[Rfam]
RNA: 6S / SsrS RNA
RNA sequence: AUACAGCUGCGUUGUACGUAAUGAAUAAUUAAGUUUUAACCUUUAAGCUGUAAAAGGGAGUUUAAAAUUAAAAUGAGAAUGACAUGCCUCUUUUCAUAACGGGAGGACACGCAUGAACAUUUUUGCAAACACCCACUUUGAGGAGUGGUGGUUUAAAACUUUCUUAUAUAAUGAAAUACGGCAAAGGCGGCUCAUAU
Numbered sequence: 001a002u003a004c005a006g007c008u009g010c011g012u013u014g015u016a017c018g019u020a021a022u023g024a025a026u027a028a029u030u031a032a033g034u035u036u037u038a039a040c041c042u043u044u045a046a047g048c049u050g051u052a053a054a055a056g057g058g059a060g061u062u063u064a065a066a067a068u069u070a071a072a073a074u075g076a077g078a079a080u081g082a083c084a085u086g087c088c089u090c091u092u093u094u095c096a097u098a099a100c101g102g103g104a105g106g107a108c109a110c111g112c113a114u115g116a117a118c119a120u121u122u123u124u125g126c127a128a129a130c131a132c133c134c135a136c137u138u139u140g141a142g143g144a145g146u147g148g149u150g151g152u153u154u155a156a157a158a159c160u161u162u163c164u165u166a167u168a169u170a171a172u173g174a175a176a177u178a179c180g181g182c183a184a185a186g187g188c189g190g191c192u193c194a195u196a197u
Stems, first nucleotide, its partner, number of pairs: 005192006012184004017180003032160004037155003040151002056134003060130004067124001070123006081112001087106005